Notes: The record is a 159-nucleotide sequence from Zhenhengia yiwuensis, which matches "glmS glucosamine-6-phosphate activated ribozyme aptamer" in Rfam. Its family is annotated with regulation of gene expression and catalytic activity in the Gene Ontology. The family's RNA type in Rfam is riboswitch.
RNA sequence: GAAAAUAAUGAAGCGCCAGAACUUAAUCAAAUAAGAAAAAUUAAGUUGACGAGGGCUAGAGUUAUCGAAAAUUCGGCGGAUGCUCUAGAGGGAUCACACCCUUACAAGAUGACAAAUCUAUAAGGUGACUUAUAGGACAAAACAUCUUGAGUGAAUUCC
Numbered sequence: 001g002a003a004a005a006u007a008a009u010g011a012a013g014c015g016c017c018a019g020a021a022c023u024u025a026a027u028c029a030a031a032u033a034a035g036a037a038a039a040a041u042u043a044a045g046u047u048g049a050c051g052a053g054g055g056c057u058a059g060a061g062u063u064a065u066c067g068a069a070a071a072u073u074c075g076g077c078g079g080a081u082g083c084u085c086u087a088g089a090g091g092g093a094u095c096a097c098a099c100c101c102u103u104a105c106a107a108g109a110u111g112a113c114a115a116a117u118c119u120a121u122a123a124g125g126u127g128a129c130u131u132a133u134a135g136g137a138c139a140a141a142a143c144a145u146c147u148u149g150a151g152u153g154a155a156u157u158c159c
Stems, first nucleotide, its partner, number of pairs: 020047008056088005065076004089102004105149007118135007
Taxonomically the source falls in Zhenhengia (Bacteria, Bacillati, Bacillota, Lachnospirales).